RNA sequence: GUUUAUUAGUUGGGGGUCAUUGUAGAAGCGUGAUCGUCGCAACCCCUGUCAGCCCUUUUCAGGGGCUGCAAUUCUACA
Numbered sequence: 001g002u003u004u005a006u007u008a009g010u011u012g013g014g015g016g017u018c019a020u021u022g023u024a025g026a027a028g029c030g031u032g033a034u035c036g037u038c039g040c041a042a043c044c045c046c047u048g049u050c051a052g053c054c055c056u057u058u059u060c061a062g063g064g065g066c067u068g069c070a071a072u073u074c075u076a077c078a
Stems, first nucleotide, its partner, number of pairs: 013046005021078007028040003050068007